[Rfam]
Source information: A member of the RNA family "Small nucleolar RNA Z43" from Dendrobium catenatum, 98 nucleotides long. The base pairs follow the family's consensus structure, which was predicted with PFOLD. The family's RNA type in Rfam is C/D-box small nucleolar RNA. A search with the family's covariance model found it, with a score of 95 bits.

RNA sequence: UGACGAUGAUGAUUUGAUGAAUAUAAGGUCUCGUUCGUCGUAAUGGCGAGUACGCCUUGCCGACCAUCCUGAUAUAUCACCACCCAUAUUCUGAGUCA
Numbered sequence: 001u002g003a004c005g006a007u008g009a010u011g012a013u014u015u016g017a018u019g020a021a022u023a024u025a026a027g028g029u030c031u032c033g034u035u036c037g038u039c040g041u042a043a044u045g046g047c048g049a050g051u052a053c054g055c056c057u058u059g060c061c062g063a064c065c066a067u068c069c070u071g072a073u074a075u076a077u078c079a080c081c082a083c084c085c086a087u088a089u090u091c092u093g094a095g096u097c098a
Stems, first nucleotide, its partner, number of pairs: 001098004048058002